[Rfam]
RNA sequence: CCAACUCACCGGCCAGGCCCCGCGGGAACCGGGGAACCACCCCUUCUCGUCAGCAUGUCGGGAAGGACGGGGUGAAUCGGGCGCCCCGCACGGGACGCCCGUAGGAGACCUUCCUGCUCCGAACCCGUCAGCUAACCCGGUAGGCGAGAAGGAAGGAAAG
Numbered sequence: 001c002c003a004a005c006u007c008a009c010c011g012g013c014c015a016g017g018c019c020c021c022g023c024g025g026g027a028a029c030c031g032g033g034g035a036a037c038c039a040c041c042c043c044u045u046c047u048c049g050u051c052a053g054c055a056u057g058u059c060g061g062g063a064a065g066g067a068c069g070g071g072g073u074g075a076a077u078c079g080g081g082c083g084c085c086c087c088g089c090a091c092g093g094g095a096c097g098c099c100c101g102u103a104g105g106a107g108a109c110c111u112u113c114c115u116g117c118u119c120c121g122a123a124c125c126c127g128u129c130a131g132c133u134a135a136c137c138c139g140g141u142a143g144g145c146g147a148g149a150a151g152g153a154a155g156g157a158a159a160g
Stems, first nucleotide, its partner, number of pairs: 001144002006027002028141006038069001070126003078101006104120004
Source information: Shown here is a 160-nucleotide RNA from Streptomyces diacarni, a member of the family "c-di-AMP riboswitch aptamer (ydaO/yuaA leader)". The organism belongs to Streptomyces, within Bacteria.